[Rfam]
RNA sequence: GAGAGUAGGUUUCUCGCAGUCGAUUUACAGGGGGGCUGCAAACCACUGUGAGCGGUAUUUGUUAAGUAAGAGCGUUUGUCGUGAGCGUUACAGAAAACAUACGCAUCAAGUUAAGG
Numbered sequence: 001g002a003g004a005g006u007a008g009g010u011u012u013c014u015c016g017c018a019g020u021c022g023a024u025u026u027a028c029a030g031g032g033g034g035g036c037u038g039c040a041a042a043c044c045a046c047u048g049u050g051a052g053c054g055g056u057a058u059u060u061g062u063u064a065a066g067u068a069a070g071a072g073c074g075u076u077u078g079u080c081g082u083g084a085g086c087g088u089u090a091c092a093g094a095a096a097a098c099a100u101a102c103g104c105a106u107c108a109a110g111u112u113a114a115g116g
Stems, first nucleotide, its partner, number of pairs: 001015005016039006024033003044116001046093006052082002055079003060074003099112001
RNA: Group II catalytic intron D1-D4-2